[Rfam]
RNA sequence: CUGAGCUAGUGAUGAUGAUAAAAGUUAUCCCUGUCUGAAUUUGAUCUUUCCUCUGUGGAAGUGUAACUCUGAGGCUCAG
Dot-bracket structure: (((((((.................................................................)))))))
Numbered sequence: 001c002u003g004a005g006c007u008a009g010u011g012a013u014g015a016u017g018a019u020a021a022a023a024g025u026u027a028u029c030c031c032u033g034u035c036u037g038a039a040u041u042u043g044a045u046c047u048u049u050c051c052u053c054u055g056u057g058g059a060a061g062u063g064u065a066a067c068u069c070u071g072a073g074g075c076u077c078a079g
Stems, first nucleotide, its partner, number of pairs: 001079007